Rfam assigns this 59-nucleotide RNA sequence to the family "Selenocysteine insertion sequence 3". By type it is a cis-regulatory element. The match comes from Rfam's covariance-model search (74 bits). The family's consensus secondary structure was predicted with CMfinder. Rfam 15.1 lists 640 matches to the family in 593 species.

[Rfam]
RNA sequence: GUCUGACACGGCCCGACGGUGUCCAGUUUGGGCCCGACGCUCGGCCGUGGCGGCAUGAC
Numbered sequence: 001g002u003c004u005g006a007c008a009c010g011g012c013c014c015g016a017c018g019g020u021g022u023c024c025a026g027u028u029u030g031g032g033c034c035c036g037a038c039g040c041u042c043g044g045c046c047g048u049g050g051c052g053g054c055a056u057g058a059c
Stems, first nucleotide, its partner, number of pairs: 007049007015042002018035002021033005